[Rfam]
Rfam assigns this 365-nucleotide RNA from Venatorbacter sp. C2-1 to the family "Bacterial RNase P class A". Rfam classes the family as a ribozyme. The organism belongs to Venatoribacter, within Bacteria. A search with the family's covariance model found it, with a score of 332 bits. From the family's description: Ribonuclease P (RNase P) is a ubiquitous endoribonuclease, found in archaea, bacteria and eukarya as well as chloroplasts and mitochondria. Its best characterised activity is the generation of mature 5'-ends of tRNAs by cleaving the 5'-leader elements of precursor-tRNAs.
RNA sequence: GGAGUCGGCCAGACAGUCGUCGCCCGCACUGGCAACAGUGUGGGGGGAGGAAAGUCCGGGCUUCACAGGGCAGGGUGCCAGGUAACGCCUGGGAGGCGCGAGCCUACGACCAGUGCAACAGAGAGCAAACCGCCGAUGGCCCGCGCAAGCGGGAUCAGGUAAGGGUGAAAGGGUGCGGUAAGAGCGCACCGCGCGACUGGUAACAGUUCGUGGCACGGUAAACUCCACCCGAAGCAAGACCAAAUAGGUUCCCUAUAGGCGCGGCCCGCGCUGGGAACGGGUAGGUUGCUUGAGCCUGUGAGUGAUUGCAGGCCUAGACGAAUGACUGUCCACGACAGAACCCGGCUUAUCGGCUGACUCCUUUU
Numbered sequence: 001g002g003a004g005u006c007g008g009c010c011a012g013a014c015a016g017u018c019g020u021c022g023c024c025c026g027c028a029c030u031g032g033c034a035a036c037a038g039u040g041u042g043g044g045g046g047g048a049g050g051a052a053a054g055u056c057c058g059g060g061c062u063u064c065a066c067a068g069g070g071c072a073g074g075g076u077g078c079c080a081g082g083u084a085a086c087g088c089c090u091g092g093g094a095g096g097c098g099c100g101a102g103c104c105u106a107c108g109a110c111c112a113g114u115g116c117a118a119c120a121g122a123g124a125g126c127a128a129a130c131c132g133c134c135g136a137u138g139g140c141c142c143g144c145g146c147a148a149g150c151g152g153g154a155u156c157a158g159g160u161a162a163g164g165g166u167g168a169a170a171g172g173g174u175g176c177g178g179u180a181a182g183a184g185c186g187c188a189c190c191g192c193g194c195g196a197c198u199g200g201u202a203a204c205a206g207u208u209c210g211u212g213g214c215a216c217g218g219u220a221a222a223c224u225c226c227a228c229c230c231g232a233a234g235c236a237a238g239a240c241c242a243a244a245u246a247g248g249u250u251c252c253c254u255a256u257a258g259g260c261g262c263g264g265c266c267c268g269c270g271c272u273g274g275g276a277a278c279g280g281g282u283a284g285g286u287u288g289c290u291u292g293a294g295c296c297u298g299u300g301a302g303u304g305a306u307u308g309c310a311g312g313c314c315u316a317g318a319c320g321a322a323u324g325a326c327u328g329u330c331c332a333c334g335a336c337a338g339a340a341c342c343c344g345g346c347u348u349a350u351c352g353g354c355u356g357a358c359u360c361c362u363u364u365u
Stems, first nucleotide, its partner, number of pairs: 001361010011350001012330007020047002023044008052348003056345005061234004068267004073230005078092005093107001094105004108225002113223002115219002130164002132160003137157003141153002172190006191214001192212005197206003238287004248278006258272005294313008